RNA: Bacterial RNase P class B
RNA sequence: CGCAUUGGUCAAUUGCUGAUUUUAUAAUUAGAGGAAAGUCCGCUCUAGCACAGCCUGCGAUGGUUGUAGUGAUCGUGUUGGAUCUAAUAAAUCCAAGCCUAGACGACAAGUGCCACAGAGACGAGAAAAGUGAAACGCGGUAAACUCCACGAGCUAGAAACUCAAAUUUUGGUAGAGGAACUUUUGCAAGGUAAAUGAACUAAGCAAAAGAGGUAAUUUUUAAAAUAAUAAAAAUUACUUAGAUAAAUAAUUGACAAGGAUUAAAAAUCCUACAAAAAGCGGCUUAUAAAU
Numbered sequence: 001c002g003c004a005u006u007g008g009u010c011a012a013u014u015g016c017u018g019a020u021u022u023u024a025u026a027a028u029u030a031g032a033g034g035a036a037a038g039u040c041c042g043c044u045c046u047a048g049c050a051c052a053g054c055c056u057g058c059g060a061u062g063g064u065u066g067u068a069g070u071g072a073u074c075g076u077g078u079u080g081g082a083u084c085u086a087a088u089a090a091a092u093c094c095a096a097g098c099c100u101a102g103a104c105g106a107c108a109a110g111u112g113c114c115a116c117a118g119a120g121a122c123g124a125g126a127a128a129a130g131u132g133a134a135a136c137g138c139g140g141u142a143a144a145c146u147c148c149a150c151g152a153g154c155u156a157g158a159a160a161c162u163c164a165a166a167u168u169u170u171g172g173u174a175g176a177g178g179a180a181c182u183u184u185u186g187c188a189a190g191g192u193a194a195a196u197g198a199a200c201u202a203a204g205c206a207a208a209a210g211a212g213g214u215a216a217u218u219u220u221u222a223a224a225a226u227a228a229u230a231a232a233a234a235u236u237a238c239u240u241a242g243a244u245a246a247a248u249a250a251u252u253g254a255c256a257a258g259g260a261u262u263a264a265a266a267a268u269c270c271u272a273c274a275a276a277a278a279g280c281g282g283c284u285u286a287u288a289a290a291u
Stems, first nucleotide, its partner, number of pairs: 004291003007287001008255007016031006036285003040282005045157005050067006073152005078096006097104001098102001105147002110145002112141003161177003181210007211240012258270004